[Rfam]
Rfam assigns this 45-nucleotide sequence from Candidatus Moduliflexus flocculans to the family "Acido-Lenti-1 RNA".
It is annotated as a small RNA.
RNA sequence: CCCAGGGUUUCACCCUGGGCUAAUAUGAUUCGCGCCGUUGGCGCU
Number, nucleotide and partner (000 for none) at each position: 001c019002c018003c017004a016005g015006g014007g013008u012009u000010u000011c000012a008013c007014c006015c005016u004017g003018g002019g001020c000021u000022a000023a000024u000025a000026u000027g000028a000029u000030u000031c000032g044033c043034g042035c041036c040037g000038u000039u000040g036041g035042c034043g033044c032045u000